[Rfam]
RNA sequence: GGCACUCUGGAAAGCGGCGGGGGAAACCCCGUCCACCGACGGGUGUAACCUGUCCGGCGCGAUCAUGCCGGCUCGGGGAAAUCUCUCAGGUUCCAAGACAGAGGGGGCGCG
Numbered sequence: 001g002g003c004a005c006u007c008u009g010g011a012a013a014g015c016g017g018c019g020g021g022g023g024a025a026a027c028c029c030c031g032u033c034c035a036c037c038g039a040c041g042g043g044u045g046u047a048a049c050c051u052g053u054c055c056g057g058c059g060c061g062a063u064c065a066u067g068c069c070g071g072c073u074c075g076g077g078g079a080a081a082u083c084u085c086u087c088a089g090g091u092u093c094c095a096a097g098a099c100a101g102a103g104g105g106g107g108c109g110c111g
Stems, first nucleotide, its partner, number of pairs: 003105001005103005016033004035091003038087002043085001045083001049078002

The record is a 111-nucleotide sequence from Allobosea sp. RAC05, which matches "Glycine riboswitch aptamer" in Rfam. NCBI's taxonomy places the organism under Bacteria, Pseudomonadati, Hyphomicrobiales, Alloboseaceae, Allobosea.